[Rfam]
RNA: mir-15 microRNA precursor family
Organism: Taeniopygia guttata
RNA sequence: CGAAGUGCUGUAGCAGCACAUCAUGGUUUGCAUGCUCUGCUCAGGGUGCAAAUCAUGAUUUGCUGCUGUAG
Numbered sequence: 001c002g003a004a005g006u007g008c009u010g011u012a013g014c015a016g017c018a019c020a021u022c023a024u025g026g027u028u029u030g031c032a033u034g035c036u037c038u039g040c041u042c043a044g045g046g047u048g049c050a051a052a053u054c055a056u057g058a059u060u061u062g063c064u065g066c067u068g069u070a071g
Stems, first nucleotide, its partner, number of pairs: 010069009020059002023056011